[Rfam]
About this RNA:
Rfam assigns this 102-nucleotide RNA from Rummeliibacillus sp. TYF005 to the family "Purine riboswitch aptamer". The base pairs follow the family's consensus structure, which is taken from published work. Lineage of the source: Bacteria > Bacillota > Caryophanales > Caryophanaceae > Rummeliibacillus. The match comes from Rfam's covariance-model search (86 bits).

RNA sequence: UAAAACUAAAUAUUAAUCGCUCAUAUAAUAGCAAGAAUAAGGCUUGCGAGUUUCUACCAGUUCACCGUAAAUGAAUUGACUAUGAGAAGCAAAUAUAAUAGU
Numbered sequence: 001u002a003a004a005a006c007u008a009a010a011u012a013u014u015a016a017u018c019g020c021u022c023a024u025a026u027a028a029u030a031g032c033a034a035g036a037a038u039a040a041g042g043c044u045u046g047c048g049a050g051u052u053u054c055u056a057c058c059a060g061u062u063c064a065c066c067g068u069a070a071a072u073g074a075a076u077u078g079a080c081u082a083u084g085a086g087a088a089g090c091a092a093a094u095a096u097a098a099u100a101g102u
Base pairs, nucleotide, nucleotide: 020086021085022084023083024082025081029049031047032046033045034044035043058078059077060076061075062074063073064072